[Rfam]
RNA sequence: CGAGCAGCACAGACAAUCGCAGCUGCAAGUGCCGAAAGGCCGCAGGUGAGGAAAGUCCGGGCUUCAUAGGGCAGGAUGCCGGAUAACGUCCGGUGGAGGCAACUCCCAGGCCAGUGCAACAGAAAAUAACCGCCAGCCUUAGCUGGUAAGGGUGAAAAGGCGAGGUAAGAGCUCACCGCGUUUCCGGUAACGGAGACGGCUGUGUAAACCCCAUCCGAAGCAAGACCGAACAGGGACGAUACGGUUGCCCGCCGUGUUCCGGGUAGGUUGCUUGAGUCUGCCGGUAACGGCAGACCUAGAUAGAUGAUUGUCUGAUACAGAACCCGGCUUAUAGUGCUGCUCCCUUA
Numbered sequence: 001c002g003a004g005c006a007g008c009a010c011a012g013a014c015a016a017u018c019g020c021a022g023c024u025g026c027a028a029g030u031g032c033c034g035a036a037a038g039g040c041c042g043c044a045g046g047u048g049a050g051g052a053a054a055g056u057c058c059g060g061g062c063u064u065c066a067u068a069g070g071g072c073a074g075g076a077u078g079c080c081g082g083a084u085a086a087c088g089u090c091c092g093g094u095g096g097a098g099g100c101a102a103c104u105c106c107c108a109g110g111c112c113a114g115u116g117c118a119a120c121a122g123a124a125a126a127u128a129a130c131c132g133c134c135a136g137c138c139u140u141a142g143c144u145g146g147u148a149a150g151g152g153u154g155a156a157a158a159g160g161c162g163a164g165g166u167a168a169g170a171g172c173u174c175a176c177c178g179c180g181u182u183u184c185c186g187g188u189a190a191c192g193g194a195g196a197c198g199g200c201u202g203u204g205u206a207a208a209c210c211c212c213a214u215c216c217g218a219a220g221c222a223a224g225a226c227c228g229a230a231c232a233g234g235g236a237c238g239a240u241a242c243g244g245u246u247g248c249c250c251g252c253c254g255u256g257u258u259c260c261g262g263g264u265a266g267g268u269u270g271c272u273u274g275a276g277u278c279u280g281c282c283g284g285u286a287a288c289g290g291c292a293g294a295c296c297u298a299g300a301u302a303g304a305u306g307a308u309u310g311u312c313u314g315a316u317a318c319a320g321a322a323c324c325c326g327g328c329u330u331a332u333a334g335u336g337c338u339g340c341u342c343c344c345u346u347a
Base pairs, nucleotide, nucleotide: 002342003341004340005339006338007337008336009335010334011332012312013311014310015309016308017307018306020048021047023045024044025043026042053330054329055328057327058326059325060324061323062220063219064218065217069250070249071248072247074216075215076214077213078212079093080092081091082090083089094108095106096105097104098103109211110210114209115208116205117204118203130151131150132147133146134145135144136143137142159177160176162174163173164172178200179198180197181196182195183194184193185192186191224269225268226267227266234260235259236258241255242254243253244252245251276295277294278293279292280291281290282289283288
This 347-nucleotide RNA from Roseburia sp. CAG:380 belongs to the Rfam family "Bacterial RNase P class A".
A reference for the family is Frank and Pace (1998), "Ribonuclease P: unity and diversity in a tRNA processing ribozyme", Annu Rev Biochem.
By type it is a ribozyme.
Lineage of the source: Bacteria > Bacillati > Bacillota > Lachnospirales > Roseburia.